Overview:
The family of this 159-nucleotide RNA from Streptomyces poonensis is "c-di-AMP riboswitch aptamer (ydaO/yuaA leader)". The source organism's lineage runs through Bacteria, Actinomycetota, Kitasatosporales, Streptomycetaceae and Streptomyces.
RNA sequence: CGUCAGAACUCACCCGUGCACGGCAGGAGCGGGGGACCCACAGGUAUGACCGCCUGUUCCGGUUCCCGGAACAGGCUAGGGGUUAAGCCGUGCACAGCCGCGGCCGGGCAGCUCCAGUCCGCACCCGACAGCUCACCUCGCAGGCGCCGGAGAGGAACC
Dot-bracket structure: ..........(.((....(.......).((((((....(.......................................)(((.....((((........))))..((((.......))))...))).........)))))).)).).............